RNA sequence: GGCAAUAAACGGUCAGUGCAAUAAACCUAUCGGACCCGGGGGCGGUACCCGGCGCCUCCACCACAGGGCAUCAGGCAAGAGCCAGGUGCCUUGCGGCGGGGGCGAAAUAGGAUCGACGAGGGCGUAAAGACUGUACUUUUGCUCGGCAUUGUACCACCGUCAUCGGGCUAUCUUAAUAGUUGCAAACGACAACUAUGCUUCGGACGUCGCUGUCGCUGCGUAA
Numbered sequence: 001g002g003c004a005a006u007a008a009a010c011g012g013u014c015a016g017u018g019c020a021a022u023a024a025a026c027c028u029a030u031c032g033g034a035c036c037c038g039g040g041g042g043c044g045g046u047a048c049c050c051g052g053c054g055c056c057u058c059c060a061c062c063a064c065a066g067g068g069c070a071u072c073a074g075g076c077a078a079g080a081g082c083c084a085g086g087u088g089c090c091u092u093g094c095g096g097c098g099g100g101g102g103c104g105a106a107a108u109a110g111g112a113u114c115g116a117c118g119a120g121g122g123c124g125u126a127a128a129g130a131c132u133g134u135a136c137u138u139u140u141g142c143u144c145g146g147c148a149u150u151g152u153a154c155c156a157c158c159g160u161c162a163u164c165g166g167g168c169u170a171u172c173u174u175a176a177u178a179g180u181u182g183c184a185a186a187c188g189a190c191a192a193c194u195a196u197g198c199u200u201c202g203g204a205c206g207u208c209g210c211u212g213u214c215g216c217u218g219c220g221u222a223a
Stems, first nucleotide, its partner, number of pairs: 001143005014133004026122003030119003036052005053104007144159003
RNA: permuted transfer-messenger RNA
Organism: Roseibium suaedae